RNA sequence: UCAUCAUCACGUAAGCACCUAAGCUUUCAGGUAUGUGCCUGGAAGGCUAUGGUUUCCUUCCACCGGCGAUAAACGUAUUGUAAAGCCCUCGGAAGAAAACUUCCGGGGGCUUUUUACU
Dot-bracket structure: .......(((.......(((.(....).)))...)))(.(((((((.........)))))))..)..............(.((((((((((((((....)))))))))))))).)...